[Rfam]
Rfam assigns this 119-nucleotide RNA sequence from Paenibacillus foliorum to the family "Bacillus sRNA ncr1015". It is annotated as a small RNA. The family's consensus secondary structure is taken from published work. Lineage of the source: Bacteria > Bacillati > Bacilli > Paenibacillaceae > Paenibacillus.

RNA sequence: GAGUAAGAUCUAAUAUUUAUGUCAAUUUACCUUGUAAAAGUCGCAAUCUGAUUAUAUCAUCGUGUCUGUUUAUAUGCAAUAUUAGAGAACCUGGUAAAACUACUCAGGUUCUAUUUGCA
Numbered sequence: 001g002a003g004u005a006a007g008a009u010c011u012a013a014u015a016u017u018u019a020u021g022u023c024a025a026u027u028u029a030c031c032u033u034g035u036a037a038a039a040g041u042c043g044c045a046a047u048c049u050g051a052u053u054a055u056a057u058c059a060u061c062g063u064g065u066c067u068g069u070u071u072a073u074a075u076g077c078a079a080u081a082u083u084a085g086a087g088a089a090c091c092u093g094g095u096a097a098a099a100c101u102a103c104u105c106a107g108g109u110u111c112u113a114u115u116u117g118c119a
Base pairs, nucleotide, nucleotide: 034073035072036071037070038069040065042062043061084114086112087111088110089109090108091107092106093105094104